This 87-nucleotide sequence from Canis lupus belongs to the Rfam family "mir-8799 microRNA precursor family". Rfam links the family to the GO terms RISC complex and miRNA-mediated post-transcriptional gene silencing.
[Rfam]
RNA sequence: UGGGGGAAUUCGGAUCCUGGGCUGUGUCCCGGCGCCCUGUGCUCCGGGGGCUGCACUGUUGGAUUCGCUCCCGCCCCGCAGCCCCCU
Dot-bracket structure: .(((((...(.((...(.(((..(((((((((.((...(..((....)).).)).)))..)))..)))))).)))..)...))))).
The match comes from Rfam's covariance-model search (60 bits). NCBI's taxonomy places the organism under Eukaryota, Teleostomi, Dipnotetrapodomorpha, Eutheria, Canis lupus. The family has 7 seed sequences and 20,638 matches in Rfam 15.1. Its Rfam clan is "mir-8791 microRNA precursor clan".